Overview: This 52-nucleotide RNA from Solanum tuberosum belongs to the Rfam family "MIR1886 microRNA precursor family". The family has 4 seed sequences and 1,053 matches in Rfam 15.1. The source organism's lineage runs through Eukaryota, Embryophyta, Magnoliopsida, asterids and Solanum. The match comes from Rfam's covariance-model search (63 bits). Gene Ontology terms of the family: RISC complex and miRNA-mediated post-transcriptional gene silencing.

RNA sequence: UGAGAUGAAAUCACCGUUUAGACAUGUGAUAUCAAGCUGAUUUCAUCUCAUG
Number, nucleotide and partner (000 for none) at each position: 001u050002g049003a048004g047005a046006u045007g044008a043009a042010a041011u040012c039013a038014c000015c036016g000017u034018u029019u028020a027021g000022a000023c000024a000025u000026g000027u020028g019029a018030u000031a000032u000033c000034a017035a000036g015037c000038u013039g012040a011041u010042u009043u008044c007045a006046u005047c004048u003049c002050a001051u000052g000